Rfam assigns this 122-nucleotide sequence from Pelagibius litoralis to the family "TPP riboswitch aptamer (THI element)". Lineage of the source: Bacteria > Pseudomonadati > Rhodospirillales > Rhodovibrionaceae > Pelagibius.

[Rfam]
RNA sequence: GCAGUCUCAACGGGGUGCCCAAGACGGGCUGAGAGAAGGGGAAGCGGUCAAGCCGCGGUCCUGACAACCCGAUGAACCUGACCCGGGUAAUGCCGGCGGAGGGAUUUGAGCGGCAGGCCUCU
Numbered sequence: 001g002c003a004g005u006c007u008c009a010a011c012g013g014g015g016u017g018c019c020c021a022a023g024a025c026g027g028g029c030u031g032a033g034a035g036a037a038g039g040g041g042a043a044g045c046g047g048u049c050a051a052g053c054c055g056c057g058g059u060c061c062u063g064a065c066a067a068c069c070c071g072a073u074g075a076a077c078c079u080g081a082c083c084c085g086g087g088u089a090a091u092g093c094c095g096g097c098g099g100a101g102g103g104a105u106u107u108g109a110g111c112g113g114c115a116g117g118c119c120u121c122u
Stems, first nucleotide, its partner, number of pairs: 006110005011071004016064001017029004037062004077102003083096004